[Rfam]
RNA sequence: GCCUCUAAUGAUGAUCAAAAGACAAACUUUCGUUCUUCCGAGAUGUUCCCAUGCGGAAAAUUGUUUUGGAGACCUGAACUGAAGAGGC
Numbered sequence: 001g002c003c004u005c006u007a008a009u010g011a012u013g014a015u016c017a018a019a020a021g022a023c024a025a026a027c028u029u030u031c032g033u034u035c036u037u038c039c040g041a042g043a044u045g046u047u048c049c050c051a052u053g054c055g056g057a058a059a060a061u062u063g064u065u066u067u068g069g070a071g072a073c074c075u076g077a078a079c080u081g082a083a084g085a086g087g088c
Base pairs, nucleotide, nucleotide: 003086004085005084006083
The family of this 88-nucleotide RNA sequence from Carnegiea gigantea is "Small nucleolar RNA Z159/U59". The match comes from Rfam's covariance-model search (70 bits). For this family Rfam cites "The high diversity of snoRNAs in plants: identification and comparative study of 120 snoRNA genes from Oryza sativa" (Chen et al., Nucleic Acids Res, 2003). Its family is annotated with RNA processing and nucleolus in the Gene Ontology. Rfam 15.1 lists 1,401 matches to the family in 272 species.